[Rfam]
The family of this 197-nucleotide RNA sequence from Oryza sativa is "MIR1858 microRNA precursor family". Gene Ontology terms of the family: miRNA-mediated post-transcriptional gene silencing and RISC complex. Lineage of the source: Eukaryota > Tracheophyta > Euphyllophyta > Oryzeae > Oryza.
RNA sequence: UCCCGUCAUCGCUGCCGGCAAAGGGAGGGGGGGUGCCGCAACAAGGAGAGGAGGACGGAGUGGGGCGAGUGGAGCGUCAAAGGGGAUGUCAUCGCCGCCGAAUCUGCUCGUGGGACAUCCCCUUCGAUGCUCCACUCGCCCCAAUCCGUCCUCCUCUCCUUGUUGCGGCACCCCCCUUCGCUGGCAGCGACGACGGC
Numbered sequence: 001u002c003c004c005g006u007c008a009u010c011g012c013u014g015c016c017g018g019c020a021a022a023g024g025g026a027g028g029g030g031g032g033g034u035g036c037c038g039c040a041a042c043a044a045g046g047a048g049a050g051g052a053g054g055a056c057g058g059a060g061u062g063g064g065g066c067g068a069g070u071g072g073a074g075c076g077u078c079a080a081a082g083g084g085g086a087u088g089u090c091a092u093c094g095c096c097g098c099c100g101a102a103u104c105u106g107c108u109c110g111u112g113g114g115a116c117a118u119c120c121c122c123u124u125c126g127a128u129g130c131u132c133c134a135c136u137c138g139c140c141c142c143a144a145u146c147c148g149u150c151c152u153c154c155u156c157u158c159c160u161u162g163u164u165g166c167g168g169c170a171c172c173c174c175c176c177u178u179c180g181c182u183g184g185c186a187g188c189g190a191c192g193a194c195g196g197c
Stems, first nucleotide, its partner, number of pairs: 003196005009190011023178003029175031061143018080124011092113004097107002